[Rfam]
RNA sequence: CCAGGCUGAGGCAACUUGGCUGUCACUUUAUGUGGGUUGUAAGAGGAUGUUUGAUAAGCUGUCAUCUGAGAGCUCGCUGAGUCAUUUCGUUAAGAGUCACCGCCCUAACCGAGCUCGUAGUCACUUGUGGGAUCCAUCAGUAAUGAGGGUAUCACUUGUGUUGAAGAAUCUCGCAAUGGCUUAGGCUGGAAACAGAGCAAGCAAUAGGGAUCGCUAUGAGCGGCGGAAGGAUACCGGACUCGUGAAGUGAUGUGGCUUAUCGUGGCACUUAUUAAACAGA
Numbered sequence: 001c002c003a004g005g006c007u008g009a010g011g012c013a014a015c016u017u018g019g020c021u022g023u024c025a026c027u028u029u030a031u032g033u034g035g036g037u038u039g040u041a042a043g044a045g046g047a048u049g050u051u052u053g054a055u056a057a058g059c060u061g062u063c064a065u066c067u068g069a070g071a072g073c074u075c076g077c078u079g080a081g082u083c084a085u086u087u088c089g090u091u092a093a094g095a096g097u098c099a100c101c102g103c104c105c106u107a108a109c110c111g112a113g114c115u116c117g118u119a120g121u122c123a124c125u126u127g128u129g130g131g132a133u134c135c136a137u138c139a140g141u142a143a144u145g146a147g148g149g150u151a152u153c154a155c156u157u158g159u160g161u162u163g164a165a166g167a168a169u170c171u172c173g174c175a176a177u178g179g180c181u182u183a184g185g186c187u188g189g190a191a192a193c194a195g196a197g198c199a200a201g202c203a204a205u206a207g208g209g210a211u212c213g214c215u216a217u218g219a220g221c222g223g224c225g226g227a228a229g230g231a232u233a234c235c236g237g238a239c240u241c242g243u244g245a246a247g248u249g250a251u252g253u254g255g256c257u258u259a260u261c262g263u264g265g266c267a268c269u270u271a272u273u274a275a276a277c278a279g280a
Stems, first nucleotide, its partner, number of pairs: 001046002004021007026043003048278010060267006067259004077255003081251010094241004100237003104230002109226003113221009122160003127155004132150004137146003162166001168211005177204001179202003186195003
RNA: Metazoan signal recognition particle RNA
Organism: Paramecium primaurelia